Shown here is a 98-nucleotide RNA from Rhynchospora breviuscula, a member of the family "MIR2275 microRNA precursor family". A search with the family's covariance model found it, with a score of 65 bits. Taxonomically the source falls in Rhynchospora (Eukaryota, Spermatophyta, Cyperoideae, Rhynchosporeae). The base pairs follow the family's consensus structure, which was predicted with RNAalifold.

Nucleotides: 098
Stems, first nucleotide, its partner, number of pairs: 004095005011088004016082001018080004023075008032066002
Number, partner (000 for none) and nucleotide at each position: 001000g002000c003000u004095c005094u006093g007092a008091a009000a010000g011088u012087g013086a014085g015000a016082g017000c018080u019079g020078g021077a022000g023075g024074g025073g026072a027071c028070u029069g030068a031000a032066c033065u034000u035000u036000u037000c038000u039000c040000u041000u042000c043000c044000a045000a046000c047000u048000a049000c050000a051000u052000g053000g054000g055000a056000a057000a058000u059000u060000a061000a062000a063000g064000g065033a066032g067000u068030u069029c070028a071027g072026u073025u074024u075023u076000c077021u078020c079019c080018a081000a082016c083000a084000u085014c086013u087012c088011a089000u090000u091008u092007u093006u094005a095004g096000u097000u098000u